The record is a 57-nucleotide RNA sequence, which matches "L31-Actinobacteria ribosomal protein leader" in Rfam. The family's RNA type in Rfam is cis-regulatory leader. On this family, see Eckert and Weinberg, BMC Microbiol 2020: "Discovery of 20 novel ribosomal leader candidates in bacteria and archaea".
RNA sequence: UCGGUUCCGGUUCACGCUCGAAGACUCCCAGGUCUGGGCUCGGGCGACCCGGCGGCC
Numbered sequence: 001u002c003g004g005u006u007c008c009g010g011u012u013c014a015c016g017c018u019c020g021a022a023g024a025c026u027c028c029c030a031g032g033u034c035u036g037g038g039c040u041c042g043g044g045c046g047a048c049c050c051g052g053c054g055g056c057c
Base pairs, nucleotide, nucleotide: 003057004056005055007052008051009050010049015046016045017044018043019042020041021040